[Rfam]
RNA: ybhL leader
RNA sequence: UAGGCAUGCUGGAGCCCCGCCAGCGGCGCCUGGGUUGGAAAGAACCCGACACCCGACGGGGCAGAA
Number, nucleotide and partner (000 for none) at each position: 001u000002a000003g000004g000005c000006a000007u000008g000009c000010u000011g000012g000013a000014g062015c061016c060017c059018c058019g057020c000021c000022a000023g000024c000025g053026g052027c000028g000029c000030c000031u048032g047033g046034g045035u043036u000037g000038g000039a000040a000041a000042g000043a035044a000045c034046c033047c032048g031049a000050c000051a000052c026053c025054c000055g000056a000057c019058g018059g017060g016061g015062c014063a000064g000065a000066a000